[Rfam]
RNA sequence: CUCUUAUUCAGAGUGGUGGAGGUACAUAGGACCUGUGAAGCCACGGCAACUCCUGAUGGCGCGGCGGCCGGAAGGGAAGGUGCCUACCUGAGCGAUUAUCUUGCGCGAAGACGUAAGGGACGAUCGAACAAUAAGGG
Numbered sequence: 001c002u003c004u005u006a007u008u009c010a011g012a013g014u015g016g017u018g019g020a021g022g023u024a025c026a027u028a029g030g031a032c033c034u035g036u037g038a039a040g041c042c043a044c045g046g047c048a049a050c051u052c053c054u055g056a057u058g059g060c061g062c063g064g065c066g067g068c069c070g071g072a073a074g075g076g077a078a079g080g081u082g083c084c085u086a087c088c089u090g091a092g093c094g095a096u097u098a099u100c101u102u103g104c105g106c107g108a109a110g111a112c113g114u115a116a117g118g119g120a121c122g123a124u125c126g127a128a129c130a131a132u133a134a135g136g137g
Stems, first nucleotide, its partner, number of pairs: 001137008013044005021033003027092001030089001045084004050080002052076003093126005